[Rfam]
RNA sequence: CGUCGUUCUCAGGGCGGGGUGAAAUUCCCCACCGGCGGUAAACAAUGCGAAUUGUGAGCCCGCGAGCGCCUCGAUUAGACGGUUGAGGGACAAGCAGAUCAGGUGAAAUUCCUGAGCCGACGGUUAAAGUCCGGAUGGAAGAGAACAGGU
Numbered sequence: 001c002g003u004c005g006u007u008c009u010c011a012g013g014g015c016g017g018g019g020u021g022a023a024a025u026u027c028c029c030c031a032c033c034g035g036c037g038g039u040a041a042a043c044a045a046u047g048c049g050a051a052u053u054g055u056g057a058g059c060c061c062g063c064g065a066g067c068g069c070c071u072c073g074a075u076u077a078g079a080c081g082g083u084u085g086a087g088g089g090a091c092a093a094g095c096a097g098a099u100c101a102g103g104u105g106a107a108a109u110u111c112c113u114g115a116g117c118c119g120a121c122g123g124u125u126a127a128a129g130u131c132c133g134g135a136u137g138g139a140a141g142a143g144a145a146c147a148g149g150u
Stems, first nucleotide, its partner, number of pairs: 003148001005146006017029003031130002033119002035063004058117002066095002099115005121133003